[Rfam]
RNA sequence: AAAUUAAAUUAUUAACGUCGCACAUACACCGUCACAUCCGCUCUGGGUGCCCCUUUGGGGUGAGCGAUGGGGUGUGUGGAGGCCUAAC
Numbered sequence: 001a002a003a004u005u006a007a008a009u010u011a012u013u014a015a016c017g018u019c020g021c022a023c024a025u026a027c028a029c030c031g032u033c034a035c036a037u038c039c040g041c042u043c044u045g046g047g048u049g050c051c052c053c054u055u056u057g058g059g060g061u062g063a064g065c066g067a068u069g070g071g072g073u074g075u076g077u078g079g080a081g082g083c084c085u086a087a088c
Stems, first nucleotide, its partner, number of pairs: 023078008035069003039066005049061005
t44 RNA: an 88-nucleotide RNA from Motiliproteus sp. MSK22-1. NCBI's taxonomy places the organism under Bacteria, Pseudomonadota, Gammaproteobacteria, Oceanospirillales, Motiliproteus. The literature on the family includes a 2002 paper in Nucleic Acids Res by Tjaden et al., "Transcriptome analysis of Escherichia coli using high-density oligonucleotide probe arrays". The family's RNA type in Rfam is small RNA. The match comes from Rfam's covariance-model search (66 bits). The base pairs follow the family's consensus structure, which was predicted with LocARNA.